[Rfam]
RNA sequence: AUACUUAACUGGAUGGGGUCAGUGAGCUAUCAAUGAGACCCAUGACCUAGGUUUUGUGACCUCAAUUGCACUUUGGAGGGGUGUCUGCCUAAGGACAGUCCAAAUGGUUCAGCCUAUGUCAUAAUUUGUGAUAGUUGGGGCCUGCGUUUGCACGGCCCCUGC
Numbered sequence: 001a002u003a004c005u006u007a008a009c010u011g012g013a014u015g016g017g018g019u020c021a022g023u024g025a026g027c028u029a030u031c032a033a034u035g036a037g038a039c040c041c042a043u044g045a046c047c048u049a050g051g052u053u054u055u056g057u058g059a060c061c062u063c064a065a066u067u068g069c070a071c072u073u074u075g076g077a078g079g080g081g082u083g084u085c086u087g088c089c090u091a092a093g094g095a096c097a098g099u100c101c102a103a104a105u106g107g108u109u110c111a112g113c114c115u116a117u118g119u120c121a122u123a124a125u126u127u128g129u130g131a132u133a134g135u136u137g138g139g140g141c142c143u144g145c146g147u148u149u150g151c152a153c154g155g156c157c158c159c160u161g162c
Stems, first nucleotide, its partner, number of pairs: 012120004016048006023042002026039001049090003054087001056084003060080003063076001092115003097109001099107002136161005143154002146151001
Description:
The record is a 162-nucleotide sequence from Capsicum annuum, which matches "U1 spliceosomal RNA" in Rfam. It is annotated as a spliceosomal small nuclear RNA. Taxonomically the source falls in Capsicum (Eukaryota, Pentapetalae, Solanales, Solanoideae). U1 is a small nuclear RNA (snRNA) component of the spliceosome (involved in pre-mRNA splicing). Its 5' end forms complementary base pairs with the 5' splice junction, thus defining the 5' donor site of an intron. There are significant differences in sequence and secondary structure between metazoan and yeast U1 snRNAs, the latter being much longer (568 nucleotides as compared to 164 nucleotides in human). A reference for the family is Zwieb (1997), "The uRNA database", Nucleic Acids Res. It scores 98 bits against the family's covariance model.